The record is a 135-nucleotide sequence from Moschus moschiferus, which matches "U8 small nucleolar RNA" in Rfam. On this family, see Peculis et al., Gene 2001: "The U8 snoRNA gene family: identification and characterization of distinct, functional U8 genes in Xenopus".
RNA sequence: CAAACAGAAAGAAGAAUCCUUACCUGUCUUUUUCUUGGAAUGAAGAUUGGAACACGAUGACUGGAGUUCCCAUAAUGUGCGAUUAACAUCCGUGCAUAAUGAAGAUUUGCAACACCUUGAUUGCUCCUAUCGUAU
Dot-bracket structure: .......................((..(.((((...)))).).))...............................(((.......))).......((((.(((...........))).))))............
Numbered sequence: 001c002a003a004a005c006a007g008a009a010a011g012a013a014g015a016a017u018c019c020u021u022a023c024c025u026g027u028c029u030u031u032u033u034c035u036u037g038g039a040a041u042g043a044a045g046a047u048u049g050g051a052a053c054a055c056g057a058u059g060a061c062u063g064g065a066g067u068u069c070c071c072a073u074a075a076u077g078u079g080c081g082a083u084u085a086a087c088a089u090c091c092g093u094g095c096a097u098a099a100u101g102a103a104g105a106u107u108u109g110c111a112a113c114a115c116c117u118u119g120a121u122u123g124c125u126c127c128u129a130u131c132g133u134a135u
Stems, first nucleotide, its partner, number of pairs: 024045002028042001030040004077089003097123004102118003

The organism belongs to Moschus, within Eukaryota. Its family is annotated with RNA processing and nucleolus in the Gene Ontology.